This 46-nucleotide RNA from Leptobrachium leishanense belongs to the Rfam family "Histone 3' UTR stem-loop".
For this family Rfam cites "The sequence of the stem and flanking sequences at the 3' end of histone mRNA are critical determinants for the binding of the stem-loop binding protein" (Williams and Marzluff, Nucleic Acids Res, 1995).
Lineage of the source: Eukaryota > Eumetazoa > Sarcopterygii > Amphibia > Leptobrachium.
Its family is annotated with mRNA 3'-end processing by stem-loop binding and cleavage in the Gene Ontology.

RNA sequence: CCAACGGUUCUUCUAAGAACCAAUAAUAAUAUAUAUAUUAUAUUAU
Number, nucleotide and partner (000 for none) at each position: 001c000002c000003a000004a000005c000006g021007g020008u019009u018010c017011u016012u000013c000014u000015a000016a011017g010018a009019a008020c007021c006022a000023a000024u000025a000026a000027u000028a000029a000030u000031a000032u000033a000034u000035a000036u000037a000038u000039u000040a000041u000042a000043u000044u000045a000046u000